[Rfam]
RNA sequence: CAACAUAGGAUAGCGCCAGGCUUAUCAUUAAGAAUGAUAAGUGACGAGGAUUGAGUUUAUCGAAUGAUUCGGCGGGUGACUCAAGGCAGUGCAGUCUACAGCAAUAUACAAAAAUCUCUGUGGGGAUACAAAAUUUUUGCAUGCACCAGA
Number, nucleotide and partner (000 for none) at each position: 001c000002a000003a000004c000005a000006u000007a000008g000009g000010a000011u000012a000013g000014c000015g000016c000017c000018a000019g000020g042021c041022u040023u039024a038025u037026c036027a035028u000029u000030a000031a000032g000033a000034a000035u027036g026037a025038u024039a023040a022041g021042u020043g000044a000045c000046g000047a000048g000049g000050a000051u000052u083053g082054a081055g080056u079057u000058u000059a000060u072061c071062g070063a069064a000065u000066g000067a000068u000069u063070c062071g061072g060073c000074g000075g000076g000077u000078g000079a056080c055081u054082c053083a052084a097085g096086g095087c094088a000089g000090u000091g000092c000093a000094g087095u086096c085097u084098a000099c000100a000101g140102c139103a138104a137105u000106a135107u000108a000109c000110a000111a000112a000113a000114a000115u126116c125117u124118c000119u000120g000121u000122g000123g000124g117125g116126a115127u000128a000129c000130a000131a000132a000133a000134u000135u106136u000137u104138u103139g102140c101141a000142u000143g000144c000145a000146c000147c000148a000149g000150a000
RNA: glmS glucosamine-6-phosphate activated ribozyme aptamer